[Rfam]
Rfam assigns this 85-nucleotide sequence from Ricinus communis to the family "Small nucleolar RNA Z122". On this family, see Qu et al., Mol Cell Biol 1999: "Seven novel methylation guide small nucleolar RNAs are processed from a common polycistronic transcript by Rat1p and RNase III in yeast". The match comes from Rfam's covariance-model search (67 bits). It is annotated as a C/D-box small nucleolar RNA.

RNA sequence: GAUGGGAAAUGAUGAGAAGUUAUUUGAAGUUAGCAAAGGCAAUAGCUAUGCUGAAUGUGGCUUUGCACGUCAGUCUGAUCCCAUA
Dot-bracket structure: .((((((.......................................................................)))))).